[Rfam]
RNA sequence: UCUCCUUGCCUUUCAGGCAUCCUCUCCCAAAACUUCCAAGGCCCGGUCGGCUUCGACCGGGCCUUUUUUCUUGUCCGA
Numbered sequence: 001u002c003u004c005c006u007u008g009c010c011u012u013u014c015a016g017g018c019a020u021c022c023u024c025u026c027c028c029a030a031a032a033c034u035u036c037c038a039a040g041g042c043c044c045g046g047u048c049g050g051c052u053u054c055g056a057c058c059g060g061g062c063c064u065u066u067u068u069u070c071u072u073g074u075c076c077g078a
Base pairs, nucleotide, nucleotide: 008018009017010016011015040063041062042061043060044059045058046057047056048055